[Rfam]
RNA: mir-298 microRNA precursor family
RNA sequence: UCAGGUCUUCAGCAGAAGCCGGGUGGUUCUCCCAGUGGUUUUCCUUGACUGUGAGGAACUAGCCUGCUGUUUUGCUCAGGAAUGA
Numbered sequence: 001u002c003a004g005g006u007c008u009u010c011a012g013c014a015g016a017a018g019c020c021g022g023g024u025g026g027u028u029c030u031c032c033c034a035g036u037g038g039u040u041u042u043c044c045u046u047g048a049c050u051g052u053g054a055g056g057a058a059c060u061a062g063c064c065u066g067c068u069g070u071u072u073u074g075c076u077c078a079g080g081a082a083u084g085a
Stems, first nucleotide, its partner, number of pairs: 001085003006080003011076006018070002021067001022064003026059005033053002037049001